[Rfam]
The record is a 148-nucleotide sequence from Rhizobium sp. RU36D, which matches "Alphaproteobacterial sRNA ar9" in Rfam. Rfam classes the family as a small RNA. The source organism's lineage runs through Bacteria, Pseudomonadati, Alphaproteobacteria, Rhizobiaceae and Rhizobium. The base pairs follow the family's consensus structure. A reference for the family is del Val et al. (2012), "A survey of sRNA families in alpha-proteobacteria", RNA Biol.
RNA sequence: AUAAAAGAGGCAUGGAGAUUAAUUUCAUGUCGUUUUCGCGGUCAAGUCUUGGGAGGAUCAGAUCUUAGGCGCGCGCAGUCGCAGCCCCUUAAUUGGUGAAGGAUCACGCGAAACCUAGAGACAAGGCCCCCGGGCCUUGUUUUUUUUU
Numbered sequence: 001a002u003a004a005a006a007g008a009g010g011c012a013u014g015g016a017g018a019u020u021a022a023u024u025u026c027a028u029g030u031c032g033u034u035u036u037c038g039c040g041g042u043c044a045a046g047u048c049u050u051g052g053g054a055g056g057a058u059c060a061g062a063u064c065u066u067a068g069g070c071g072c073g074c075g076c077a078g079u080c081g082c083a084g085c086c087c088c089u090u091a092a093u094u095g096g097u098g099a100a101g102g103a104u105c106a107c108g109c110g111a112a113a114c115c116u117a118g119a120g121a122c123a124a125g126g127c128c129c130c131c132g133g134g135c136c137u138u139g140u141u142u143u144u145u146u147u148u
Base pairs, nucleotide, nucleotide: 003148004147005146006145011029012028013027014026015025016024037110038109039108040107046058047057048056049055061105062104063103064102065101068086069085070084071082072081073080087096088095120141121140122139123138124137125136126135127134